[Rfam]
RNA: Bacterial RNase P class A
Organism: Nocardia uniformis
RNA sequence: CGAGUCGGUCGGGCGGUCGCGGCGAUGGGAACGGGCACGGUUGUGCCGCCGCCCAUUGUCGAGGAAAGUCCGGACUCCACAGAGCAGGGCGGUUGUUAACGGCAACCCGGGGCGACCCGCGGGACAGUGCCACAGAAAAUAAACCGCCCACACUGUCAAGUGUGGGUAAGGGUGAAACGGUGCGGUAAGAGCGCACCAGCGCGCCGGGUGACCGGCGCGGCUAGGUAAACCCCGCCCGGAGCAAGGUCGAAGGUCGGACUCUCUGCGAGAGUGCGACUGCGCAGGCGUUCGAGGGCUGCUCGCCCGAGUCUGCGGGUGGACUGCUCGAGGCACCCGGCAACGGUGUGUCCAGAUGGAUGACCGUCCCCCGAUUUCGAUCGGGGACAGGAUCCGGCUUACAGACCGACUCGUCCG
Numbered sequence: 001c002g003a004g005u006c007g008g009u010c011g012g013g014c015g016g017u018c019g020c021g022g023c024g025a026u027g028g029g030a031a032c033g034g035g036c037a038c039g040g041u042u043g044u045g046c047c048g049c050c051g052c053c054c055a056u057u058g059u060c061g062a063g064g065a066a067a068g069u070c071c072g073g074a075c076u077c078c079a080c081a082g083a084g085c086a087g088g089g090c091g092g093u094u095g096u097u098a099a100c101g102g103c104a105a106c107c108c109g110g111g112g113c114g115a116c117c118c119g120c121g122g123g124a125c126a127g128u129g130c131c132a133c134a135g136a137a138a139a140u141a142a143a144c145c146g147c148c149c150a151c152a153c154u155g156u157c158a159a160g161u162g163u164g165g166g167u168a169a170g171g172g173u174g175a176a177a178c179g180g181u182g183c184g185g186u187a188a189g190a191g192c193g194c195a196c197c198a199g200c201g202c203g204c205c206g207g208g209u210g211a212c213c214g215g216c217g218c219g220g221c222u223a224g225g226u227a228a229a230c231c232c233c234g235c236c237c238g239g240a241g242c243a244a245g246g247u248c249g250a251a252g253g254u255c256g257g258a259c260u261c262u263c264u265g266c267g268a269g270a271g272u273g274c275g276a277c278u279g280c281g282c283a284g285g286c287g288u289u290c291g292a293g294g295g296c297u298g299c300u301c302g303c304c305c306g307a308g309u310c311u312g313c314g315g316g317u318g319g320a321c322u323g324c325u326c327g328a329g330g331c332a333c334c335c336g337g338c339a340a341c342g343g344u345g346u347g348u349c350c351a352g353a354u355g356g357a358u359g360a361c362c363g364u365c366c367c368c369c370g371a372u373u374u375c376g377a378u379c380g381g382g383g384a385c386a387g388g389a390u391c392c393g394g395c396u397u398a399c400a401g402a403c404c405g406a407c408u409c410g411u412c413c414g
Stems, first nucleotide, its partner, number of pairs: 001410010011399001012365007020061009066397003070394005075241004082301004087237005092106005107121001108119004122232002127230002129226003144171002146167009179197006199221001200219008245322004281313006293305004329349005334343003